[Rfam]
RNA: mir-374 microRNA precursor family
RNA sequence: ACACUGGCCAUUAUAAUACAACCUGAUAAGUAUUACAUUUAUCAGAUUGUAUUGUAAUUGUCUGUGUA
Numbered sequence: 001a002c003a004c005u006g007g008c009c010a011u012u013a014u015a016a017u018a019c020a021a022c023c024u025g026a027u028a029a030g031u032a033u034u035a036c037a038u039u040u041a042u043c044a045g046a047u048u049g050u051a052u053u054g055u056a057a058u059u060g061u062c063u064g065u066g067u068a
Base pairs, nucleotide, nucleotide: 013055014054015053016052017051018050019049020048021047023045024044025043027041028040029039030038031037